[Rfam]
RNA: MIR396 microRNA precursor family
Organism: Artemisia annua
RNA sequence: UUUUCUGUUCUUCCACAGCUUUCUUGAACUGCAUAUAUGUUCUUGGUCUCUCAGAUCUCGAUUUGUUUAUUUGAUUACAAUCGUUGCGGUUCAAUUAAGCUGUGGGAAGAUAGAAAAA
Numbered sequence: 001u002u003u004u005c006u007g008u009u010c011u012u013c014c015a016c017a018g019c020u021u022u023c024u025u026g027a028a029c030u031g032c033a034u035a036u037a038u039g040u041u042c043u044u045g046g047u048c049u050c051u052c053a054g055a056u057c058u059c060g061a062u063u064u065g066u067u068u069a070u071u072u073g074a075u076u077a078c079a080a081u082c083g084u085u086g087c088g089g090u091u092c093a094a095u096u097a098a099g100c101u102g103u104g105g106g107a108a109g110a111u112a113g114a115a116a117a118a
Base pairs, nucleotide, nucleotide: 003115004114005113006112007111013105014104015103017101018100019099020098021097024094025093026092027091029089030088031087032086033085